[Rfam]
Nucleotides: 082
Base pairs, nucleotide, nucleotide: 001082002081003080004079005078
Number, partner (000 for none) and nucleotide at each position: 001082c002081c003080c004079g005078u006000g007000a008000c009000u010000a011000c012000a013000u014000g015000a016000u017000g018000a019000a020000a021000u022000a023000a024000a025000u026000g027000u028000u029000g030000g031000u032000a033000g034000g035000g036000a037000c038000a039000u040000c041000u042000g043000a044000g045000u046000u047000a048000a049000u050000g051000u052000g053000a054000a055000g056000a057000a058000a059000u060000g061000c062000c063000a064000a065000c066000a067000u068000u069000u070000c071000u072000g073000a074000c075000c076000u077000c078005a079004u080003g081002g082001g

The record is an 82-nucleotide sequence from Amphiprion percula, which matches "Small nucleolar RNA SNORD74" in Rfam. The organism belongs to Amphiprion, within Eukaryota. The base pairs follow the family's consensus structure, which was predicted with PFOLD. Rfam links the family to the GO terms RNA processing and nucleolus.